[Rfam]
RNA sequence: CAGCAUUCCAAACCCUCCUGGCAGCCGGGCCAGUGGCUUCCAGGAUAAGGAGGAAUGCCAGAGGAAAGUGGGGAUUGAUCCAAAGUGCAGAGCUCCCUUCCCGUGGCUCUGCAUUAUUUCACGUCUUCGACAGUCCU
Numbered sequence: 001c002a003g004c005a006u007u008c009c010a011a012a013c014c015c016u017c018c019u020g021g022c023a024g025c026c027g028g029g030c031c032a033g034u035g036g037c038u039u040c041c042a043g044g045a046u047a048a049g050g051a052g053g054a055a056u057g058c059c060a061g062a063g064g065a066a067a068g069u070g071g072g073g074a075u076u077g078a079u080c081c082a083a084a085g086u087g088c089a090g091a092g093c094u095c096c097c098u099u100c101c102c103g104u105g106g107c108u109c110u111g112c113a114u115u116a117u118u119u120c121a122c123g124u125c126u127u128c129g130a131c132a133g134u135c136c137u
Base pairs, nucleotide, nucleotide: 003058004057005056006055007051008050009049016045017044018043019042020041021040023038024037025036062137063136064135069129070128071127072126073125074124084115085114086113087112088111089110090109092107093106096103

The record is a 137-nucleotide RNA sequence from Serilophus lunatus, which matches "Small nucleolar RNA SNORA14" in Rfam. The source organism's lineage runs through Eukaryota, Opisthokonta, Metazoa, Neoaves and Serilophus. The family's consensus secondary structure was predicted with RNAfold. ACA14 is a member of the H/ACA class of snoRNA that guide the sites of modification of uridines to pseudouridines. A search with the family's covariance model found it, with a score of 92 bits.